Annotation:
Shown here is a 77-nucleotide RNA from Parnassius apollo, a member of the family "Mammalian CPEB3 ribozyme". The match comes from Rfam's covariance-model search (44 bits). The mammalian CPEB3 ribozyme is a self cleaving RNA located in the second intron of the CPEB3 gene which belongs to a family of genes regulating messenger RNA polyadenylation. NCBI's taxonomy places the organism under Eukaryota, Altocrustacea, Insecta, Parnassius, Parnassius.
[Rfam]
RNA sequence: UUAUUUUCUUUAGGAGUUAUUGUAGAAGCGUGCUCGUUGCGACCCCUGCCAGCCCUUUUCAGGGCUGCAAUUCUACA
Numbered sequence: 001u002u003a004u005u006u007u008c009u010u011u012a013g014g015a016g017u018u019a020u021u022g023u024a025g026a027a028g029c030g031u032g033c034u035c036g037u038u039g040c041g042a043c044c045c046c047u048g049c050c051a052g053c054c055c056u057u058u059u060c061a062g063g064g065c066u067g068c069a070a071u072u073c074u075a076c077a
Stems, first nucleotide, its partner, number of pairs: 013046002016043003021077007028040003050067007